ZMP/ZTP riboswitch aptamer (pfl RNA motif): an 85-nucleotide sequence from Kutzneria sp. 744. The base pairs follow the family's consensus structure, which is taken from published work. The source organism's lineage runs through Bacteria, Actinomycetota, Pseudonocardiales, Pseudonocardiaceae and Kutzneria. Its family is annotated with one-carbon metabolic process and regulation of purine nucleotide biosynthetic process in the Gene Ontology.
RNA sequence: CGGGGAGGUCGUGACUGGCGAGGGUGGGCUACCACCGGGGAGCGACCGGCACGUGAUGCGAGCGUCGACCGCCUGGGCGCCUCCG
Numbered sequence: 001c002g003g004g005g006a007g008g009u010c011g012u013g014a015c016u017g018g019c020g021a022g023g024g025u026g027g028g029c030u031a032c033c034a035c036c037g038g039g040g041a042g043c044g045a046c047c048g049g050c051a052c053g054u055g056a057u058g059c060g061a062g063c064g065u066c067g068a069c070c071g072c073c074u075g076g077g078c079g080c081c082u083c084c085g
Stems, first nucleotide, its partner, number of pairs: 004050001007047006015039002017073004024035004062080005